Shown here is a 165-nucleotide sequence from Microbulbifer sp. THAF38, a member of the family "Group II catalytic intron D1-D4-3". Rfam links the family to the GO term Group II intron splicing. It scores 78 bits against the family's covariance model. Pairs were carried over by alignment from the consensus structure. Rfam's curators write: Group II introns are found in rRNA, tRNA and mRNA of organelles in fungi, plants and protists, and also in mRNA in bacteria.

RNA sequence: AACACCGUGAGGUCUUGUGGGGAUGAAGCGGCUAGUUAAGCUAUGGGCUGACGGACCGAAACAUCCUAUAAGGCUUCGCCUGGAGGCGAGAUGGGCAAGGACACGGAAGCCGGGUGAUCUAAUGGGUAGAGUCAAUGAUGCAGCUGUGUAGUGAAGGUUCACACU
Numbered sequence: 001a002a003c004a005c006c007g008u009g010a011g012g013u014c015u016u017g018u019g020g021g022g023a024u025g026a027a028g029c030g031g032c033u034a035g036u037u038a039a040g041c042u043a044u045g046g047g048c049u050g051a052c053g054g055a056c057c058g059a060a061a062c063a064u065c066c067u068a069u070a071a072g073g074c075u076u077c078g079c080c081u082g083g084a085g086g087c088g089a090g091a092u093g094g095g096c097a098a099g100g101a102c103a104c105g106g107a108a109g110c111c112g113g114g115u116g117a118u119c120u121a122a123u124g125g126g127u128a129g130a131g132u133c134a135a136u137g138a139u140g141c142a143g144c145u146g147u148g149u150a151g152u153g154a155a156g157g158u159u160c161a162c163a164c165u
Stems, first nucleotide, its partner, number of pairs: 001016002004013003028165001031162001035158002040152006046145005062140004067135001073132003078127004083123001085111003092103002